Shown here is a 207-nucleotide RNA from Eremothecium gossypii, a member of the family "Small nucleolar RNA snR31". It scores 74 bits against the family's covariance model. By type it is an H/ACA-box small nucleolar RNA. Rfam links the family to the GO terms RNA processing and nucleolus.
RNA sequence: AAUGCCACAACUGCGUGGGGUUCACCAAGUGGACUGCAACAUUCCUAUUGUGCUGAUCCGCUGUGUGGCGCUACAUGCGAUUACCCCACGCCAGAGUAAGAGUUUAACUCAAAGGAAGAUGUAUCUCCAGCUAUUGAAUUGGCAUGACGUCUUUUUACGUCGGCCGCAUUAAAGGUGAUAUAGUUGGUCAUGGAUCUUACUACAUAC
Numbered sequence: 001a002a003u004g005c006c007a008c009a010a011c012u013g014c015g016u017g018g019g020g021u022u023c024a025c026c027a028a029g030u031g032g033a034c035u036g037c038a039a040c041a042u043u044c045c046u047a048u049u050g051u052g053c054u055g056a057u058c059c060g061c062u063g064u065g066u067g068g069c070g071c072u073a074c075a076u077g078c079g080a081u082u083a084c085c086c087c088a089c090g091c092c093a094g095a096g097u098a099a100g101a102g103u104u105u106a107a108c109u110c111a112a113a114g115g116a117a118g119a120u121g122u123a124u125c126u127c128c129a130g131c132u133a134u135u136g137a138a139u140u141g142g143c144a145u146g147a148c149g150u151c152u153u154u155u156u157a158c159g160u161c162g163g164c165c166g167c168a169u170u171a172a173a174g175g176u177g178a179u180a181u182a183g184u185u186g187g188u189c190a191u192g193g194a195u196c197u198u199a200c201u202a203c204a205u206a207c
Stems, first nucleotide, its partner, number of pairs: 013091008022068004028062006069079003113201002116198001118196002127187008141165003146161005